tRNA: a 95-nucleotide sequence from Neurospora crassa.
Transfer RNA (tRNA) molecules are approximately 80 nucleotides in length.
The base pairs follow the family's consensus structure, which is taken from published work.
The source organism's lineage runs through Eukaryota, Ascomycota, Sordariomycetes, Sordariomycetidae and Neurospora crassa.
Rfam classes the family as a transfer RNA.

RNA sequence: UCUUCCGUAGUAUAGUGGUCAGUAUGUGAGCUUGUCAAGCUUGAACAUCUCAGUUCGAUUCGCUCGAGACCCGGGUUCAAUUCCCGGCGGGAGAG
Numbered sequence: 001u002c003u004u005c006c007g008u009a010g011u012a013u014a015g016u017g018g019u020c021a022g023u024a025u026g027u028g029a030g031c032u033u034g035u036c037a038a039g040c041u042u043g044a045a046c047a048u049c050u051c052a053g054u055u056c057g058a059u060u061c062g063c064u065c066g067a068g069a070c071c072c073g074g075g076u077u078c079a080a081u082u083c084c085c086g087g088c089g090g091g092a093g094a095g
Stems, first nucleotide, its partner, number of pairs: 001094007010025004027043005071087005